[Rfam]
RNA sequence: UUUUAUAGAAUGAUGAUAUUUAAUUCUUUCCCCGUCUUAUCGACAAUGGUGAAAACCGAAAGAUUCACUUUAGCCAGUAUAUGUCUGACGUCCAUUAAA
Number, nucleotide and partner (000 for none) at each position: 001u099002u098003u097004u000005a095006u094007a000008g092009a091010a000011u000012g000013a000014u000015g000016a000017u000018a000019u000020u000021u000022a000023a000024u000025u000026c000027u000028u000029u000030c000031c000032c000033c000034g000035u000036c000037u000038u000039a000040u000041c000042g000043a000044c000045a000046a000047u000048g000049g000050u000051g000052a000053a000054a000055a000056c000057c000058g000059a000060a000061a000062g000063a000064u000065u000066c000067a000068c000069u000070u000071u000072a000073g000074c000075c000076a000077g000078u000079a000080u000081a000082u000083g000084u000085c000086u000087g000088a000089c000090g000091u009092c008093c000094a006095u005096u000097a003098a002099a001
Shown here is a 99-nucleotide sequence from Gigaspora margarita, a member of the family "Small nucleolar SNORD12/SNORD106". For this family Rfam cites "Identification of 13 novel human modification guide RNAs" (Vitali et al., Nucleic Acids Res, 2003). The source organism's lineage runs through Eukaryota, Opisthokonta, Fungi, Diversisporales and Gigaspora. It scores 45 bits against the family's covariance model. The family's RNA type in Rfam is C/D-box small nucleolar RNA. The family has 8 seed sequences and 2,264 matches in Rfam 15.1.